The family of this 78-nucleotide RNA sequence from Urocitellus parryii is "Small nucleolar RNA SNORD47". Rfam links the family to the GO terms nucleolus and RNA processing. It is annotated as a C/D-box small nucleolar RNA. Pairs were carried over by alignment from the consensus structure, which was predicted with ILM. It scores 86 bits against the family's covariance model. Rfam 15.1 lists 755 matches to the family in 638 species.
Nucleotides: 078
Stems, first nucleotide, its partner, number of pairs: 001078004
Number, partner (000 for none) and nucleotide at each position: 001078a002077a003076c004075c005000g006000g007000u008000g009000a010000u011000g012000u013000a014000a015000u016000g017000a018000u019000u020000c021000u022000g023000c024000c025000a026000a027000a028000u029000g030000a031000a032000u033000g034000c035000a036000a037000u038000g039000a040000u041000a042000u043000c044000a045000c046000u047000u048000u049000c050000a051000a052000a053000a054000c055000c056000g057000u058000u059000c060000c061000a062000u063000u064000u065000u066000u067000u068000a069000u070000u071000c072000u073000g074000a075004g076003g077002u078001u